Rfam assigns this 175-nucleotide sequence from Paramecium caudatum to the family "Ciliate telomerase RNA".
Its Rfam clan is "Telomerase clan".
Telomerase is a ribonucleoprotein reverse transcriptase that synthesises telomeric DNA. Telomerase RNAs differ greatly in sequence and structure between vertebrates, ciliates and yeasts, but they share a 5' pseudoknot structure close to the template sequence.
By type it is a non-coding RNA gene.
Rfam links the family to the GO terms telomerase activity, telomerase catalytic core complex and telomere maintenance via telomerase.
Taxonomically the source falls in Paramecium (Eukaryota, Sar, Ciliophora, Parameciidae).
On this family, see Lingner et al., Genes Dev 1994: "Telomerase RNAs of different ciliates have a common secondary structure and a permuted template".
RNA sequence: GACAAUUGCUGUAUUCAUUCUCCUUUCUCGAUAGAGAUUGGAGUCAUACAACCCCAGAAACCAUUCCUUAUACCUUGAGUAUUGCUGAAUUCAGUUUAGCGUGCAUGCUCUUGGCUAUUCUCAUAGUGAUUGUCAAAUUUGGAGUUACUUAUUCGUCAAUUCAAUAUUUAUGACG
Numbered sequence: 001g002a003c004a005a006u007u008g009c010u011g012u013a014u015u016c017a018u019u020c021u022c023c024u025u026u027c028u029c030g031a032u033a034g035a036g037a038u039u040g041g042a043g044u045c046a047u048a049c050a051a052c053c054c055c056a057g058a059a060a061c062c063a064u065u066c067c068u069u070a071u072a073c074c075u076u077g078a079g080u081a082u083u084g085c086u087g088a089a090u091u092c093a094g095u096u097u098a099g100c101g102u103g104c105a106u107g108c109u110c111u112u113g114g115c116u117a118u119u120c121u122c123a124u125a126g127u128g129a130u131u132g133u134c135a136a137a138u139u140u141g142g143a144g145u146u147a148c149u150u151a152u153u154c155g156u157c158a159a160u161u162c163a164a165u166a167u168u169u170a171u172g173a174c175g
Stems, first nucleotide, its partner, number of pairs: 005118002008115002020043003026037003075089002081102002125168004130164003136161002139159004144154001